[Rfam]
RNA sequence: ACACCGAAAGGAGGUGAUCCGGAAGAUGCAUUCAGUCCGGACAAGUGAGGUGGCUGCGGGCUAACGGCCUGCCGCUCUCAGCAGUACUCGGCCGGUCGACGGCCGAAAUCCCAAGCAGUCACCCGACCCGCGAACCGCCGGUAUGUCCGGCCGGCUCUCUCCCCGGAGAGACCAUGGUUCGCGGGUCGUCUGCG
Number, nucleotide and partner (000 for none) at each position: 001a000002c000003a000004c000005c000006g000007a000008a000009a000010g000011g000012a000013g000014g057015u056016g055017a000018u053019c000020c000021g000022g000023a000024a000025g000026a000027u000028g000029c000030a000031u000032u000033c000034a000035g000036u000037c000038c000039g000040g000041a000042c000043a000044a000045g000046u000047g000048a000049g000050g000051u000052g000053g018054c000055u016056g015057c014058g000059g104060g103061c102062u101063a000064a000065c098066g097067g096068c095069c094070u000071g092072c091073c090074g000075c000076u000077c000078u000079c000080a000081g000082c000083a000084g000085u000086a000087c000088u000089c000090g073091g072092c071093c000094g069095g068096u067097c066098g065099a000100c000101g062102g061103c060104c059105g000106a000107a000108a000109u000110c000111c000112c000113a000114a000115g000116c000117a000118g000119u000120c000121a000122c000123c000124c188125g187126a186127c185128c184129c183130g182131c181132g180133a179134a178135c177136c176137g155138c154139c153140g152141g151142u150143a000144u000145g000146u000147c000148c000149g000150g142151c141152c140153g139154g138155c137156u000157c000158u000159c000160u000161c000162c000163c000164c000165g000166g000167a000168g000169a000170g000171a000172c000173c000174a000175u000176g136177g135178u134179u133180c132181g131182c130183g129184g128185g127186u126187c125188g124189u000190c000191u000192g000193c000194g000
About this RNA
This 194-nucleotide RNA from Streptomyces sp. 150FB belongs to the Rfam family "Actinobacteria sRNA Ms_IGR-5". The literature on the family includes a 2013 paper in RNA by Li et al., "Identification of small RNAs in Mycobacterium smegmatis using heterologous Hfq". The base pairs follow the family's consensus structure. The organism belongs to Streptomyces, within Bacteria.